[Rfam]
RNA: 23S methyl RNA motif
RNA sequence: AGUUAAUUGGUUUUAUUCAAUCCUGUUCUGAAUAAAGCAAAUUAAGUCCCAACUGGAUGCUUCGCUGAGCUUGACUCCGAGGUUUCCAGUUUUUUU
Numbered sequence: 001a002g003u004u005a006a007u008u009g010g011u012u013u014u015a016u017u018c019a020a021u022c023c024u025g026u027u028c029u030g031a032a033u034a035a036a037g038c039a040a041a042u043u044a045a046g047u048c049c050c051a052a053c054u055g056g057a058u059g060c061u062u063c064g065c066u067g068a069g070c071u072u073g074a075c076u077c078c079g080a081g082g083u084u085u086c087c088a089g090u091u092u093u094u095u096u
Stems, first nucleotide, its partner, number of pairs: 003045006010038010051091007059083006067077003